[Rfam]
Shown here is an 82-nucleotide sequence from Acanthochromis polyacanthus, a member of the family "mir-194 microRNA precursor family". Taxonomically the source falls in Acanthochromis (Eukaryota, Opisthokonta, Teleostomi, Osteoglossocephalai). On this family, see Michael et al., Mol Cancer Res 2003: "Reduced accumulation of specific microRNAs in colorectal neoplasia". Pairs were carried over by alignment from the consensus structure, which was predicted with RNAalifold.
RNA sequence: UGGUGCUUGCUGGAUGUAACAGCAACUCCAUGUGGAAGUUAAGUUUUGUUCCAGUGGAGGUGCUGUUACCUGCAGAGAUUCA
Numbered sequence: 001u002g003g004u005g006c007u008u009g010c011u012g013g014a015u016g017u018a019a020c021a022g023c024a025a026c027u028c029c030a031u032g033u034g035g036a037a038g039u040u041a042a043g044u045u046u047u048g049u050u051c052c053a054g055u056g057g058a059g060g061u062g063c064u065g066u067u068a069c070c071u072g073c074a075g076a077g078a079u080u081c082a
Stems, first nucleotide, its partner, number of pairs: 010075003016069008026059006033053003